[Rfam]
RNA sequence: UCCGGGGGAAGCUCACCGCCGAGGCCACGCACGGGGUGCGCGUCACCCGUGAAUCCCCGCCUCGGGGAAGGUCUGAGGCAAGGGCCGCCCACGGCUCCAGCAGAGCCCCGCCCGCGAACGGGCCGGGUGAGCCACCAGCAAGGGGGGGCGCCGCGUGCACCAGGGUCACCCGGGGCAGGAGAAACCGCAGCGGGUGCUGCCCGCACCAGCCGGUGGAUGCCCGUGGUGCCGCGGGGCUUUGAGACAGACUCACGGCCGGCGAUCGCUGAGUUCAAUGGGUGAGGUGGGGCAGCGCCCUACAACCCAAUUCAGACUACUCUCUCCCGGA
Numbered sequence: 001u002c003c004g005g006g007g008g009a010a011g012c013u014c015a016c017c018g019c020c021g022a023g024g025c026c027a028c029g030c031a032c033g034g035g036g037u038g039c040g041c042g043u044c045a046c047c048c049g050u051g052a053a054u055c056c057c058c059g060c061c062u063c064g065g066g067g068a069a070g071g072u073c074u075g076a077g078g079c080a081a082g083g084g085c086c087g088c089c090c091a092c093g094g095c096u097c098c099a100g101c102a103g104a105g106c107c108c109c110g111c112c113c114g115c116g117a118a119c120g121g122g123c124c125g126g127g128u129g130a131g132c133c134a135c136c137a138g139c140a141a142g143g144g145g146g147g148g149c150g151c152c153g154c155g156u157g158c159a160c161c162a163g164g165g166u167c168a169c170c171c172g173g174g175g176c177a178g179g180a181g182a183a184a185c186c187g188c189a190g191c192g193g194g195u196g197c198u199g200c201c202c203g204c205a206c207c208a209g210c211c212g213g214u215g216g217a218u219g220c221c222c223g224u225g226g227u228g229c230c231g232c233g234g235g236g237c238u239u240u241g242a243g244a245c246a247g248a249c250u251c252a253c254g255g256c257c258g259g260c261g262a263u264c265g266c267u268g269a270g271u272u273c274a275a276u277g278g279g280u281g282a283g284g285u286g287g288g289g290c291a292g293c294g295c296c297c298u299a300c301a302a303c304c305c306a307a308u309u310c311a312g313a314c315u316a317c318u319c320u321c322u323c324c325c326g327g328a
Stems, first nucleotide, its partner, number of pairs: 001328004007322003012283006020064005034048005073312005083257004093107005108126003112122002127253005133247001147238003284300007
Shown here is a 328-nucleotide RNA sequence from Chordeiles acutipennis, a member of the family "Nuclear RNase P". The base pairs follow the family's consensus structure, which is taken from published work. Gene Ontology terms of the family: tRNA processing, ribonuclease P activity and ribonuclease P complex. It scores 154 bits against the family's covariance model.